Small nucleolar RNA SNORA75: a 135-nucleotide RNA from Jaculus jaculus. The base pairs follow the family's consensus structure, which was predicted with PFOLD. Rfam 15.1 lists 414 matches to the family in 310 species. Gene Ontology terms of the family: nucleolus and RNA processing.

[Rfam]
RNA sequence: AUCUAUUCUUUGAGCUCCUUUCUGUCAACUGGUGACAGUUUAUGGAUCUGCAUGAGAAGGAAGGAUUUUACAGAACUAGUAUGACCUUACCUUCUGUUUACACAGAAGUACAUUUGACUAUUUUGUGAGACAUUC
Numbered sequence: 001a002u003c004u005a006u007u008c009u010u011u012g013a014g015c016u017c018c019u020u021u022c023u024g025u026c027a028a029c030u031g032g033u034g035a036c037a038g039u040u041u042a043u044g045g046a047u048c049u050g051c052a053u054g055a056g057a058a059g060g061a062a063g064g065a066u067u068u069u070a071c072a073g074a075a076c077u078a079g080u081a082u083g084a085c086c087u088u089a090c091c092u093u094c095u096g097u098u099u100a101c102a103c104a105g106a107a108g109u110a111c112a113u114u115u116g117a118c119u120a121u122u123u124u125g126u127g128a129g130a131c132a133u134u135c
Base pairs, nucleotide, nucleotide: 003059004058006056007055008054014051015050016046017045018044022038023037024036025035026034068128069127070126071125072124073123091108092107093106094105095104096103